[Rfam]
A member of the RNA family "Histone 3' UTR stem-loop" from Rousettus aegyptiacus, 46 nucleotides long. The literature on the family includes a 1995 paper in Nucleic Acids Res by Williams and Marzluff, "The sequence of the stem and flanking sequences at the 3' end of histone mRNA are critical determinants for the binding of the stem-loop binding protein". By type it is a cis-regulatory element. Gene Ontology term of the family: mRNA 3'-end processing by stem-loop binding and cleavage. Taxonomically the source falls in Rousettus (Eukaryota, Bilateria, Pteropodoidea, Rousettinae). About the family: The mRNAs of metazoan histone genes lack a poly-A tail. 3' end processing occurs at a site between a highly conserved stem-loop (modelled by this family) and a purine rich region around 20 nts downstream (the histone downstream element, or HDE).
RNA sequence: UCAAAGGCUCUUUUCAGAGCCACCCACGUUUUCACUGAAAGGGCUG
Numbered sequence: 001u002c003a004a005a006g007g008c009u010c011u012u013u014u015c016a017g018a019g020c021c022a023c024c025c026a027c028g029u030u031u032u033c034a035c036u037g038a039a040a041g042g043g044c045u046g
Stems, first nucleotide, its partner, number of pairs: 006021006